RNA sequence: AGUUUAAUAGGGAAUGAAGUUUCCCGUUAAUUGCAACUGCUGAUGACUUCUACAAUUUU
Numbered sequence: 001a002g003u004u005u006a007a008u009a010g011g012g013a014a015u016g017a018a019g020u021u022u023c024c025c026g027u028u029a030a031u032u033g034c035a036a037c038u039g040c041u042g043a044u045g046a047c048u049u050c051u052a053c054a055a056u057u058u059u
Stems, first nucleotide, its partner, number of pairs: 010025004016050006033040002
The family of this 59-nucleotide RNA from Ezakiella coagulans is "Fluoride riboswitch aptamer (crcB RNA motif)".
Gene Ontology terms of the family: response to fluoride and positive regulation of gene expression.
A search with the family's covariance model found it, with a score of 46 bits.
The base pairs follow the family's consensus structure, which is taken from published work.
The source organism's lineage runs through Bacteria, Bacillati, Bacillota, Tissierellia and Ezakiella.